[Rfam]
RNA sequence: GGCCACAGACCUAUAGAUACAAGCUUGUGUGGAAUAUGAGCACAAGUUCGGAUCUACGGGUUUGUGGCAG
Numbered sequence: 001g002g003c004c005a006c007a008g009a010c011c012u013a014u015a016g017a018u019a020c021a022a023g024c025u026u027g028u029g030u031g032g033a034a035u036a037u038g039a040g041c042a043c044a045a046g047u048u049c050g051g052a053u054c055u056a057c058g059g060g061u062u063u064g065u066g067g068c069a070g
Base pairs, nucleotide, nucleotide: 002068003067004066005065006064007063010060011059012058015055016054017053018052020050022048023047024046025045026044027043028042029041
RNA: mir-10 microRNA precursor family